[Rfam]
RNA sequence: UAAUUUUAUUAAAAACGACACACACACACCGGCACGUAGUUCUGGGUGCUCCGAUGAGAUCAACGCAGGUUGCUCUGAAGGGUUGGAUUAUGGGGUGUGUGGAGGUUUAAC
Dot-bracket structure: ......................((((((((....((((((((.....((((............................)))).)))))))).))))))))..........
Numbered sequence: 001u002a003a004u005u006u007u008a009u010u011a012a013a014a015a016c017g018a019c020a021c022a023c024a025c026a027c028a029c030c031g032g033c034a035c036g037u038a039g040u041u042c043u044g045g046g047u048g049c050u051c052c053g054a055u056g057a058g059a060u061c062a063a064c065g066c067a068g069g070u071u072g073c074u075c076u077g078a079a080g081g082g083u084u085g086g087a088u089u090a091u092g093g094g095g096u097g098u099g100u101g102g103a104g105g106u107u108u109a110a111c
Stems, first nucleotide, its partner, number of pairs: 023101008035092008048083004
The family of this 111-nucleotide sequence from Oceanospirillum linum is "t44 RNA". This family consists of a number of bacterial RNA genes of between 135 and 170 bases in length. The t44 gene has been identified in several species of enteric bacteria but homologs have also been identified in Pseudomonas and Coxiella species. The t44 gene is found between the map and rpsB genes in all species in the full alignment apart from Shigella flexneri. The function of this RNA is unknown. The source organism's lineage runs through Bacteria, Pseudomonadati, Pseudomonadota, Oceanospirillaceae and Oceanospirillum.